Rfam assigns this 153-nucleotide RNA sequence from Actinomyces urogenitalis to the family "c-di-AMP riboswitch aptamer (ydaO/yuaA leader)". Its family is annotated with regulation of gene expression and cyclic-di-AMP binding in the Gene Ontology. The base pairs follow the family's consensus structure. A search with the family's covariance model found it, with a score of 50 bits. NCBI's taxonomy places the organism under Bacteria, Bacillati, Actinomycetaceae, Actinomyces, Actinomyces urogenitalis.
RNA sequence: UCGAUCCAUACGACUUCACCAGCAGGCACGGGGGACCCACCGCCGGCCAGGCCGCUACAGGCUGAGCCUCGGGGUGAAGCCCGCCUCGUGCGGGCCGGGCGCCUCCCGCUCGAACCCGACAGCUAACCUCGCAGGCUCCCCAGGAGAGAACUG
Numbered sequence: 001u002c003g004a005u006c007c008a009u010a011c012g013a014c015u016u017c018a019c020c021a022g023c024a025g026g027c028a029c030g031g032g033g034g035a036c037c038c039a040c041c042g043c044c045g046g047c048c049a050g051g052c053c054g055c056u057a058c059a060g061g062c063u064g065a066g067c068c069u070c071g072g073g074g075u076g077a078a079g080c081c082c083g084c085c086u087c088g089u090g091c092g093g094g095c096c097g098g099g100c101g102c103c104u105c106c107c108g109c110u111c112g113a114a115c116c117c118g119a120c121a122g123c124u125a126a127c128c129u130c131g132c133a134g135g136c137u138c139c140c141c142a143g144g145a146g147a148g149a150a151c152u153g
Base pairs, nucleotide, nucleotide: 001134006026007025029131030130031129032128033127038071072117073116074115080094081093082092083091097111098110099109100108